[Rfam]
RNA sequence: GCACCUAAUCUUUCCCAUUUCUUGCUGUGCAGUGUGAGCAUGGGGACACAUGGUGCUUACAGAAGAGCAGAGUAAAUCCAGACAGGUAGUUUUUGAUUGAUUACUUGUCUCUACACCUCUGCAACAGCU
Numbered sequence: 001g002c003a004c005c006u007a008a009u010c011u012u013u014c015c016c017a018u019u020u021c022u023u024g025c026u027g028u029g030c031a032g033u034g035u036g037a038g039c040a041u042g043g044g045g046a047c048a049c050a051u052g053g054u055g056c057u058u059a060c061a062g063a064a065g066a067g068c069a070g071a072g073u074a075a076a077u078c079c080a081g082a083c084a085g086g087u088a089g090u091u092u093u094u095g096a097u098u099g100a101u102u103a104c105u106u107g108u109c110u111c112u113a114c115a116c117c118u119c120u121g122c123a124a125c126a127g128c129u
Stems, first nucleotide, its partner, number of pairs: 001056005012046007020038001067122006080110008
About this RNA
Shown here is a 129-nucleotide sequence from Penelope pileata, a member of the family "Small nucleolar RNA SNORA55". Taxonomically the source falls in Penelope (Eukaryota, Sarcopterygii, Sauropsida, Saurischia). ACA55 is a member of the H/ACA class of snoRNA that guide the sites of modification of uridines to pseudouridines. A search with the family's covariance model found it, with a score of 110 bits. The base pairs follow the family's consensus structure, which was predicted with PFOLD.